[Rfam]
RNA sequence: AUGGAUUGAGGACGGAACAGGCAGCCGUCGCCCUAGUUGGAGAUGUGGGAGUGUCGCCCCACCAUUUCAU
Numbered sequence: 001a002u003g004g005a006u007u008g009a010g011g012a013c014g015g016a017a018c019a020g021g022c023a024g025c026c027g028u029c030g031c032c033c034u035a036g037u038u039g040g041a042g043a044u045g046u047g048g049g050a051g052u053g054u055c056g057c058c059c060c061a062c063c064a065u066u067u068c069a070u
Stems, first nucleotide, its partner, number of pairs: 001070005007064002011029005020055004031040001045062005
Shown here is a 70-nucleotide sequence, a member of the family "skipping-rope RNA".